[Rfam]
Description
A member of the RNA family "mir-87 microRNA precursor family" from Cylicocyclus nassatus, 71 nucleotides long. For this family Rfam cites "Systematic discovery and characterization of fly microRNAs using 12 Drosophila genomes" (Stark et al., Genome Res, 2007). The source organism's lineage runs through Eukaryota, Opisthokonta, Bilateria, Rhabditomorpha and Cylicocyclus.
RNA sequence: GUCCUUCCCGCCUGACACUUGUCUCAAACCUCAUUUCAUGAAGGUGAGCAAAGUCUCAGGUGUGGUGGCCG
Number, nucleotide and partner (000 for none) at each position: 001g000002u000003c068004c067005u000006u065007c064008c000009c062010g061011c060012c059013u058014g057015a056016c000017a054018c053019u052020u051021g000022u000023c048024u047025c046026a045027a000028a000029c044030c043031u042032c000033a000034u000035u000036u000037c000038a000039u000040g000041a000042a031043g030044g029045u026046g025047a024048g023049c000050a000051a020052a019053g018054u017055c000056u015057c014058a013059g012060g011061u010062g009063u000064g007065g006066u000067g004068g003069c000070c000071g000